[Rfam]
RNA sequence: AGGCCGGGAGAGAGAGGCAGGGUCUGAUCCACAGCCUCCGUGGCAGCUGUUGAUCAACUGUUGCCUCUUUCUUUCUCUCCG
Numbered sequence: 001a002g003g004c005c006g007g008g009a010g011a012g013a014g015a016g017g018c019a020g021g022g023u024c025u026g027a028u029c030c031a032c033a034g035c036c037u038c039c040g041u042g043g044c045a046g047c048u049g050u051u052g053a054u055c056a057a058c059u060g061u062u063g064c065c066u067c068u069u070u071c072u073u074u075c076u077c078u079c080c081g
Stems, first nucleotide, its partner, number of pairs: 008073013022059001025056005032049004
This 81-nucleotide RNA sequence from Myotis myotis belongs to the Rfam family "mir-574 microRNA precursor family". A reference for the family is Lui et al. (2007), "Patterns of known and novel small RNAs in human cervical cancer", Cancer Res.